[Rfam]
RNA sequence: CUAACCAUUUAAUUACAUAACAGAUGUAGCGUGAAAUUCAUUUGUAUUUUAAUUGUAUUGUGUAAAGCAG
Numbered sequence: 001c002u003a004a005c006c007a008u009u010u011a012a013u014u015a016c017a018u019a020a021c022a023g024a025u026g027u028a029g030c031g032u033g034a035a036a037u038u039c040a041u042u043u044g045u046a047u048u049u050u051a052a053u054u055g056u057a058u059u060g061u062g063u064a065a066a067g068c069a070g
Base pairs, nucleotide, nucleotide: 014028015027016026017025018024033050034049035048037046039044

Shown here is a 70-nucleotide RNA from Sagittarius serpentarius, a member of the family "bablM sRNA". Pairs were carried over by alignment from the consensus structure, which is taken from published work. By type it is a small RNA. For this family Rfam cites "Identification of candidate structured RNAs in the marine organism 'Candidatus Pelagibacter ubique'" (Meyer et al., BMC Genomics, 2009). The match comes from Rfam's covariance-model search (42 bits).